[Rfam]
RNA: mraW RNA
RNA sequence: CACAUCGGGUGUCGUGAGGCCUCGGUCCGCUCGACUCUCGACCCUGGCGCACCUUCCCCGGCGCCAGGUUCGACGGGCGGGCGGGGACCUGGCGGCACCCGAUUUUUUUA
Numbered sequence: 001c002a003c004a005u006c007g008g009g010u011g012u013c014g015u016g017a018g019g020c021c022u023c024g025g026u027c028c029g030c031u032c033g034a035c036u037c038u039c040g041a042c043c044c045u046g047g048c049g050c051a052c053c054u055u056c057c058c059c060g061g062c063g064c065c066a067g068g069u070u071c072g073a074c075g076g077g078c079g080g081g082c083g084g085g086g087a088c089c090u091g092g093c094g095g096c097a098c099c100c101g102a103u104u105u106u107u108u109u110a
Stems, first nucleotide, its partner, number of pairs: 008099007018089002021086003025082008038073004043068008